[Rfam]
RNA: antisense RNA of dnaA mRNA
RNA sequence: UUUGGCAUUGGCCUUGCGCGCCAUGAUGCCGUUGCCCACCGCAUGCAGCAAAUGGGUCUUGCCCAGCCCGGUGCCGCCAUA
Numbered sequence: 001u002u003u004g005g006c007a008u009u010g011g012c013c014u015u016g017c018g019c020g021c022c023a024u025g026a027u028g029c030c031g032u033u034g035c036c037c038a039c040c041g042c043a044u045g046c047a048g049c050a051a052a053u054g055g056g057u058c059u060u061g062c063c064c065a066g067c068c069c070g071g072u073g074c075c076g077c078c079a080u081a
Base pairs, nucleotide, nucleotide: 005042006041009038010037011036013034016032017031018030020029021028053076054075056074057073061072062071063070